[Rfam]
RNA sequence: UUCGGCCGGUCAGCGGUUCCUCCGCUGCCCUUCAAGCCGUCGCCGACGCAUCCCCAAUCGAUAAUAUCGAGCGAUCCAGUCGCCUUCUCGCGGCGCGGC
Numbered sequence: 001u002u003c004g005g006c007c008g009g010u011c012a013g014c015g016g017u018u019c020c021u022c023c024g025c026u027g028c029c030c031u032u033c034a035a036g037c038c039g040u041c042g043c044c045g046a047c048g049c050a051u052c053c054c055c056a057a058u059c060g061a062u063a064a065u066a067u068c069g070a071g072c073g074a075u076c077c078a079g080u081c082g083c084c085u086u087c088u089c090g091c092g093g094c095g096c097g098g099c
Stems, first nucleotide, its partner, number of pairs: 011027005036099004041095005071083005